This 108-nucleotide RNA sequence from Plutella xylostella belongs to the Rfam family "mir-8517 microRNA precursor family". The source organism's lineage runs through Eukaryota, Bilateria, Allotriocarida, Lepidoptera and Plutella. The base pairs follow the family's consensus structure, which was predicted with RNAalifold.
RNA sequence: UUAUAGGAGGUUUUAGCUAGUGAACUGCUAUGUUUCUCUCUAACUCAAAACAAUGUGUUCUUUGACCGAGAGGGACAAAACAGUUCAAUAGUUAAAACUUACUAUAAC
Numbered sequence: 001u002u003a004u005a006g007g008a009g010g011u012u013u014u015a016g017c018u019a020g021u022g023a024a025c026u027g028c029u030a031u032g033u034u035u036c037u038c039u040c041u042a043a044c045u046c047a048a049a050a051c052a053a054u055g056u057g058u059u060c061u062u063u064g065a066c067c068g069a070g071a072g073g074g075a076c077a078a079a080a081c082a083g084u085u086c087a088a089u090a091g092u093u094a095a096a097a098c099u100u101a102c103u104a105u106a107a108c
Stems, first nucleotide, its partner, number of pairs: 001107006011097009021087007029069001032066003049059004